[Rfam]
RNA: Small Cajal body specific RNA 15
RNA sequence: AUGGAGGAUUAAGAAAGUAGAUCUUUUCAAGUUUCAUGGAUCCUACUGAUACUGUCCUCCUACAUAAAAUGGUAGAGGAACAGGACUGUUUGCAAGUUUGUACACAGGACCUACUUAAUCUACCAACACGU
Numbered sequence: 001a002u003g004g005a006g007g008a009u010u011a012a013g014a015a016a017g018u019a020g021a022u023c024u025u026u027u028c029a030a031g032u033u034u035c036a037u038g039g040a041u042c043c044u045a046c047u048g049a050u051a052c053u054g055u056c057c058u059c060c061u062a063c064a065u066a067a068a069a070u071g072g073u074a075g076a077g078g079a080a081c082a083g084g085a086c087u088g089u090u091u092g093c094a095a096g097u098u099u100g101u102a103c104a105c106a107g108g109a110c111c112u113a114c115u116u117a118a119u120c121u122a123c124c125a126a127c128a129c130g131u
Base pairs, nucleotide, nucleotide: 003060004059005058006057007056008055010051011050018045019044020043024039025036071124072123073122074121075120076119077116082112083111084110086107087106088105